[Rfam]
RNA: tRNA
Organism: Ruminococcaceae bacterium YAD3003
RNA sequence: GCACCUCUAGCUCAGAUGGUAGAGCAACUGACUCUUAAUCAGUGGGCCCAGGGUUCGAGUCCCUGGAGGUGCA
Numbered sequence: 001g002c003a004c005c006u007c008u009a010g011c012u013c014a015g016a017u018g019g020u021a022g023a024g025c026a027a028c029u030g031a032c033u034c035u036u037a038a039u040c041a042g043u044g045g046g047c048c049c050a051g052g053g054u055u056c057g058a059g060u061c062c063c064u065g066g067a068g069g070u071g072c073a
Stems, first nucleotide, its partner, number of pairs: 001072007010025004027043005049065005